[Rfam]
RNA sequence: AGAGGCCCAUCCGUGGCCAGGGUGGAAUGCUUGCCUUGUUGCUGCCGUGACGAAGCAAGCAUUCCACCAGGCCGCUCAUGCUGCCCCA
Numbered sequence: 001a002g003a004g005g006c007c008c009a010u011c012c013g014u015g016g017c018c019a020g021g022g023u024g025g026a027a028u029g030c031u032u033g034c035c036u037u038g039u040u041g042c043u044g045c046c047g048u049g050a051c052g053a054a055g056c057a058a059g060c061a062u063u064c065c066a067c068c069a070g071g072c073c074g075c076u077c078a079u080g081c082u083g084c085c086c087c088a
Base pairs, nucleotide, nucleotide: 004085005084006083013075014074015073016072017071018070021068022067023066024065025064026063027062028061029060030059031058032057033056034055038051039050040049041048042047

This 88-nucleotide sequence from Cnephaeus nilssonii belongs to the Rfam family "mir-9195 microRNA precursor family". Lineage of the source: Eukaryota > Bilateria > Teleostomi > Chiroptera > Cnephaeus.